[Rfam]
RNA: Nuclear RNase P
Organism: Caenorhabditis briggsae
RNA sequence: UUGGCCGGAAGAAGACGGUUGGGAGAGACACAAAGGCCUUAAACUAUGGCCUAAACACUCCCGGGAAGGUCUGAGAGAAGGCUUGAAAUAAGAGAUCUAGGAGAUCUUUCAGUUUCCUUAUAGAGAAGAGGCUGUAGAAGAAGAGUUUCCCCUGUUCGGGUUUGGAAACGGCCUCAGCCAGCAAUCCAAUAAGUACUGAGUGCGAUCGUCAUACCAACACAAUUCAGACUAGUCUUCGGCCAA
Numbered sequence: 001u002u003g004g005c006c007g008g009a010a011g012a013a014g015a016c017g018g019u020u021g022g023g024a025g026a027g028a029c030a031c032a033a034a035g036g037c038c039u040u041a042a043a044c045u046a047u048g049g050c051c052u053a054a055a056c057a058c059u060c061c062c063g064g065g066a067a068g069g070u071c072u073g074a075g076a077g078a079a080g081g082c083u084u085g086a087a088a089u090a091a092g093a094g095a096u097c098u099a100g101g102a103g104a105u106c107u108u109u110c111a112g113u114u115u116c117c118u119u120a121u122a123g124a125g126a127a128g129a130g131g132c133u134g135u136a137g138a139a140g141a142a143g144a145g146u147u148u149c150c151c152c153u154g155u156u157c158g159g160g161u162u163u164g165g166a167a168a169c170g171g172c173c174u175c176a177g178c179c180a181g182c183a184a185u186c187c188a189a190u191a192a193g194u195a196c197u198g199a200g201u202g203c204g205a206u207c208g209u210c211a212u213a214c215c216a217a218c219a220c221a222a223u224u225c226a227g228a229c230u231a232g233u234c235u236u237c238g239g240c241c242a243a
Stems, first nucleotide, its partner, number of pairs: 001243004007237003013212001018207001021062005034052005039046001071227005080179004093107005113128004118123001129174007149160002